[Rfam]
RNA sequence: UUGCAACCCCGCCACAUCCGCCGCGAGACGGAGCCGGAAAGCCACGGGUCUUGGGAAGUAAGACAGCCGGGUUACCUUC
Numbered sequence: 001u002u003g004c005a006a007c008c009c010c011g012c013c014a015c016a017u018c019c020g021c022c023g024c025g026a027g028a029c030g031g032a033g034c035c036g037g038a039a040a041g042c043c044a045c046g047g048g049u050c051u052u053g054g055g056a057a058g059u060a061a062g063a064c065a066g067c068c069g070g071g072u073u074a075c076c077u078u079c
Stems, first nucleotide, its partner, number of pairs: 012037002017032004022027001040073004045069003048064003
Dot-bracket structure: ...........((...((((.(....).))))...))..((((.((((((...........)))..)))))))......

The family of this 79-nucleotide sequence from Methylomonas methanica is "c-di-GMP-I riboswitch aptamer". A search with the family's covariance model found it, with a score of 49 bits. The base pairs follow the family's consensus structure, which is taken from published work.